[Rfam]
RNA sequence: UCCUGAUAAAGCUAAACCCACCGUGAGAUGGGGGCGGAAAGCCUCGGAUCUUGCAAGAGAUGGCCGGACUGCCUGG
Numbered sequence: 001u002c003c004u005g006a007u008a009a010a011g012c013u014a015a016a017c018c019c020a021c022c023g024u025g026a027g028a029u030g031g032g033g034g035c036g037g038a039a040a041g042c043c044u045c046g047g048a049u050c051u052u053g054c055a056a057g058a059g060a061u062g063g064c065c066g067g068a069c070u071g072c073c074u075g076g
Stems, first nucleotide, its partner, number of pairs: 012037002017032004022027001040070002043067001045066003048061003
Dot-bracket structure: ...........((...((((.(....).))))...))..((.(.((((((........)))..)))).))......